[Rfam]
RNA sequence: UGCUCCCUGGGAUAUUCGCUAGCUGGUAAUGUCCCUGUGCCGAUAAUUACAAACCCAGGGUGAAUGUUUUACUGACAUUGUGCAAGCUCGGCUCGUACCGAGAAGCCUUAGGAGGUAUUCAUUUACCCGCCUUGAACCUACGGUUCAAGGGCUACACCAGCGGUCGGUAUUCUGGGGAGCAA
Numbered sequence: 001u002g003c004u005c006c007c008u009g010g011g012a013u014a015u016u017c018g019c020u021a022g023c024u025g026g027u028a029a030u031g032u033c034c035c036u037g038u039g040c041c042g043a044u045a046a047u048u049a050c051a052a053a054c055c056c057a058g059g060g061u062g063a064a065u066g067u068u069u070u071a072c073u074g075a076c077a078u079u080g081u082g083c084a085a086g087c088u089c090g091g092c093u094c095g096u097a098c099c100g101a102g103a104a105g106c107c108u109u110a111g112g113a114g115g116u117a118u119u120c121a122u123u124u125a126c127c128c129g130c131c132u133u134g135a136a137c138c139u140a141c142g143g144u145u146c147a148a149g150g151g152c153u154a155c156a157c158c159a160g161c162g163g164u165c166g167g168u169a170u171u172c173u174g175g176g177g178a179g180c181a182a
Base pairs, nucleotide, nucleotide: 002180003179004178005177006176007175008174009173010172011171012170013169014168015167017166018165031152032151033150034149036147037146039144040143041142058128059127060126062124063123064122065121066120070117071116072115073114076112082106083105087102088101089100090099091098
Dot-bracket structure: .((((((((((((((.((............((((.((.(((................(((.(((((...((((..(.....((...(((((......)))))..)).....).))))..))))).))).............))).)).))))............))))))))))))))))..
Rfam assigns this 182-nucleotide sequence from Shewanella pealeana to the family "6S / SsrS RNA". The family's RNA type in Rfam is non-coding RNA gene. NCBI's taxonomy places the organism under Bacteria, Pseudomonadota, Alteromonadales, Shewanella, Shewanella pealeana. About the family: E. coli 6S RNA was the first non coding RNA to be sequenced, but its function was unknown until recently. It consists of 184 nucleotides that fold into an extended hairpin structure with a large single-stranded internal bulge.